The family of this 51-nucleotide RNA sequence from Oculatella sp. FACHB-28 is "Nitrogen stress-induced RNA 1". Pairs were carried over by alignment from the consensus structure. It is annotated as a small RNA. The family has 17 seed sequences and 962 matches in Rfam 15.1. For this family Rfam cites "Heterocyst-specific transcription of NsiR1, a non-coding RNA encoded in a tandem array of direct repeats in cyanobacteria" (Ionescu et al., J Mol Biol, 2010).
RNA sequence: UGGUAGAUGCACCCUGAAUUAAUCCCUGGCUUCAUGCUGGGGAUUUUUUUU
Numbered sequence: 001u002g003g004u005a006g007a008u009g010c011a012c013c014c015u016g017a018a019u020u021a022a023u024c025c026c027u028g029g030c031u032u033c034a035u036g037c038u039g040g041g042g043a044u045u046u047u048u049u050u051u
Stems, first nucleotide, its partner, number of pairs: 002013003023043008
Dot-bracket structure: .(((......))).........((((((((.....))))))))........
Lineage of the source: Bacteria > Cyanophyceae > Oculatellales > Oculatellaceae > Oculatella.